The record is a 121-nucleotide sequence from Microcebus murinus, which matches "Small nucleolar RNA SNORA26" in Rfam.
The organism belongs to Microcebus, within Eukaryota.
The family's RNA type in Rfam is H/ACA-box small nucleolar RNA.
The snoRNA HBI-6 belong to the H/ACA family of snoRNAs, guiding the pseudouridylation of position U4522 if the 28S rRNA. HBI-6 is the human orthologue of mouse MBI-6 snoRNA.

RNA sequence: GUGUCAUUUUAAAAUUGUUGCAGUGCUUUAAGAGGCUAAAACAGAAGGGUAUAGUAAUCUUCAUAAAACCCAAAGAAGAGAUUUCAAAACUCCUAUUUGGAUCCUGUCUGGAGUCACAGCG
Numbered sequence: 001g002u003g004u005c006a007u008u009u010u011a012a013a014a015u016u017g018u019u020g021c022a023g024u025g026c027u028u029u030a031a032g033a034g035g036c037u038a039a040a041a042c043a044g045a046a047g048g049g050u051a052u053a054g055u056a057a058u059c060u061u062c063a064u065a066a067a068a069c070c071c072a073a074a075g076a077a078g079a080g081a082u083u084u085c086a087a088a089a090c091u092c093c094u095a096u097u098u099g100g101a102u103c104c105u106g107u108c109u110g111g112a113g114u115c116a117c118a119g120c121g
Stems, first nucleotide, its partner, number of pairs: 002051004007046004015039003019035001021032001059113005070100005076094001078092003082089002